About this RNA: A member of the RNA family "Small nucleolar RNA SNORD46" from Carassius auratus, 106 nucleotides long. Rfam links the family to the GO terms nucleolus and RNA processing. The family's RNA type in Rfam is C/D-box small nucleolar RNA. Rfam's curators write: U40 is a C/D box small nucleolar RNA, also known as snoZ153 in plants. Taxonomically the source falls in Carassius (Eukaryota, Deuterostomia, Craniata, Otophysi).
RNA sequence: AAUGUGGGUGAUGAAAACACGUCCUUAGGUUGGUCAUUUUUGGCCGUUUUGGUCGAAACCUUUGACCUCCCAAUGUUAGGAUUAGUCAUAGUUACACUGACACAUG
Numbered sequence: 001a002a003u004g005u006g007g008g009u010g011a012u013g014a015a016a017a018c019a020c021g022u023c024c025u026u027a028g029g030u031u032g033g034u035c036a037u038u039u040u041u042g043g044c045c046g047u048u049u050u051g052g053u054c055g056a057a058a059c060c061u062u063u064g065a066c067c068u069c070c071c072a073a074u075g076u077u078a079g080g081a082u083u084a085g086u087c088a089u090a091g092u093u094a095c096a097c098u099g100a101c102a103c104a105u106g
Stems, first nucleotide, its partner, number of pairs: 002105005
Dot-bracket structure: .(((((..............................................................................................))))).